[Rfam]
RNA sequence: AAGAAAUGAAGAAACUAAAAUUGGUUUUAGUAUUGAAGAUGCUGAGAUCCAACUCUGAUCUUGCCCUAAAC
Numbered sequence: 001a002a003g004a005a006a007u008g009a010a011g012a013a014a015c016u017a018a019a020a021u022u023g024g025u026u027u028u029a030g031u032a033u034u035g036a037a038g039a040u041g042c043u044g045a046g047a048u049c050c051a052a053c054u055c056u057g058a059u060c061u062u063g064c065c066c067u068a069a070a071c
Stems, first nucleotide, its partner, number of pairs: 001062004
Small nucleolar RNA SNORD19: a 71-nucleotide sequence from Aotus nancymaae.
Its family is annotated with RNA processing and nucleolus in the Gene Ontology.
For this family Rfam cites "RNomics: an experimental approach that identifies 201 candidates for novel, small, non-messenger RNAs in mouse" (Huttenhofer et al., EMBO J, 2001).
Lineage of the source: Eukaryota > Metazoa > Vertebrata > Primates > Aotus.